[Rfam]
RNA sequence: UUACAAUCGAAAAGCUGACCGUAGACAGUAGGUCCUAUAUGGUACAUCGCGUUCUAGCGUUCUCGUCGAACAGUUUGUGCGAUAUGGGUUAAAGUGCCUACCGAGGUCGUGUGCAUCCUGGGUUCAGUAUGCGUGCGCCUCGUAUGUCGAGGCGCUUUUUGUAUGUUUGA
Numbered sequence: 001u002u003a004c005a006a007u008c009g010a011a012a013a014g015c016u017g018a019c020c021g022u023a024g025a026c027a028g029u030a031g032g033u034c035c036u037a038u039a040u041g042g043u044a045c046a047u048c049g050c051g052u053u054c055u056a057g058c059g060u061u062c063u064c065g066u067c068g069a070a071c072a073g074u075u076u077g078u079g080c081g082a083u084a085u086g087g088g089u090u091a092a093a094g095u096g097c098c099u100a101c102c103g104a105g106g107u108c109g110u111g112u113g114c115a116u117c118c119u120g121g122g123u124u125c126a127g128u129a130u131g132c133g134u135g136c137g138c139c140u141c142g143u144a145u146g147u148c149g150a151g152g153c154g155c156u157u158u159u160u161g162u163a164u165g166u167u168u169g170a
Base pairs, nucleotide, nucleotide: 028101029100030099031098032097033096034088035087036086037085038084039083040082135155136154137153138152139151140150141149142148
RNA: Ribosomal protein L10 leader